[Rfam]
RNA sequence: CCUAAUCCACACGGGAGCGCACACCCAGUGCGCUGAGAGGACGGCUCGGGGCCGUCGACCGUACGAACCUGACCGGGUAAUGCCGGCGUAGGGAGAUGACAAUGACCCUGA
Numbered sequence: 001c002c003u004a005a006u007c008c009a010c011a012c013g014g015g016a017g018c019g020c021a022c023a024c025c026c027a028g029u030g031c032g033c034u035g036a037g038a039g040g041a042c043g044g045c046u047c048g049g050g051g052c053c054g055u056c057g058a059c060c061g062u063a064c065g066a067a068c069c070u071g072a073c074c075g076g077g078u079a080a081u082g083c084c085g086g087c088g089u090a091g092g093g094a095g096a097u098g099a100c101a102a103u104g105a106c107c108c109u110g111a
Base pairs, nucleotide, nucleotide: 006099007098010095011062012061013060014059017033018032019031020030021029040056041055042054043053044052045051046050068092069091070090071089073086074085075084076083
This 111-nucleotide RNA from Mycobacterium kansasii belongs to the Rfam family "TPP riboswitch aptamer (THI element)". It scores 64 bits against the family's covariance model. NCBI's taxonomy places the organism under Bacteria, Bacillati, Actinomycetota, Actinomycetes, Mycobacterium.